Description
Shown here is a 127-nucleotide sequence from Streptomyces sp. SID161, a member of the family "Streptomyces RNA 3920".

RNA sequence: GAUAGGCCGCUGUCGUUACGGUGAUUGGACACUGACGCAGAGUCAACUAGCCUUGUUCACGCGGUGUUUCCCAUGCGGAAGCCGCAGACGGUCCGAGCCACGAGGGGGGAGGCUCGGACCGUCCUCG
Dot-bracket structure: (((((....)))))((((..(((......)))((((.....))))..))))......((.(.((....)).).))((.....))..(((((((((((((.(......)..)))))))))))))....
Numbered sequence: 001g002a003u004a005g006g007c008c009g010c011u012g013u014c015g016u017u018a019c020g021g022u023g024a025u026u027g028g029a030c031a032c033u034g035a036c037g038c039a040g041a042g043u044c045a046a047c048u049a050g051c052c053u054u055g056u057u058c059a060c061g062c063g064g065u066g067u068u069u070c071c072c073a074u075g076c077g078g079a080a081g082c083c084g085c086a087g088a089c090g091g092u093c094c095g096a097g098c099c100a101c102g103a104g105g106g107g108g109g110a111g112g113c114u115c116g117g118a119c120c121g122u123c124c125u126c127g
Stems, first nucleotide, its partner, number of pairs: 001014005015051004021032003033045004058075002061072001063070002076084002087123013101108001

Lineage of the source: Bacteria > Actinomycetota > Kitasatosporales > Streptomycetaceae > Streptomyces. The pairing is the family consensus, mapped onto this sequence. On this family, see Vockenhuber et al., RNA Biol 2011: "Deep sequencing-based identification of small non-coding RNAs in Streptomyces coelicolor". Identified by deep sequencing of transcriptome at the end of exponential growth phase. Sequencing size consistent with northern blot size. Streptomyces specific.